Source information:
The record is an 83-nucleotide RNA from Xenopus tropicalis, which matches "mir-181 microRNA precursor family" in Rfam.
[Rfam]
RNA sequence: CUACUUUAGUGAACAUUCAACGCUGUCGGUGAGUUUGGUAUCUAAAGGCAAACCAUCGAUCGUUGACUGUACAUUACGGCAAU
Numbered sequence: 001c002u003a004c005u006u007u008a009g010u011g012a013a014c015a016u017u018c019a020a021c022g023c024u025g026u027c028g029g030u031g032a033g034u035u036u037g038g039u040a041u042c043u044a045a046a047g048g049c050a051a052a053c054c055a056u057c058g059a060u061c062g063u064u065g066a067c068u069g070u071a072c073a074u075u076a077c078g079g080c081a082a083u
Stems, first nucleotide, its partner, number of pairs: 002082001004079002007076002014069002017066006025060007033053004
The literature on the family includes a 2001 paper in Cell by Ambros, "microRNAs: tiny regulators with great potential". The base pairs follow the family's consensus structure, which was predicted with PFOLD. Rfam 15.1 lists 3,490 matches to the family in 650 species.